[Rfam]
RNA sequence: UUAGUGAUGAUGAAAUAAGUCAAUUCCCAAUGAUAUAUCCGUGAUUUCUUGACCAGCUACUUCUGACCUAA
Numbered sequence: 001u002u003a004g005u006g007a008u009g010a011u012g013a014a015a016u017a018a019g020u021c022a023a024u025u026c027c028c029a030a031u032g033a034u035a036u037a038u039c040c041g042u043g044a045u046u047u048c049u050u051g052a053c054c055a056g057c058u059a060c061u062u063c064u065g066a067c068c069u070a071a
Stems, first nucleotide, its partner, number of pairs: 001071004
RNA: Small nucleolar RNA R12
Organism: Striga asiatica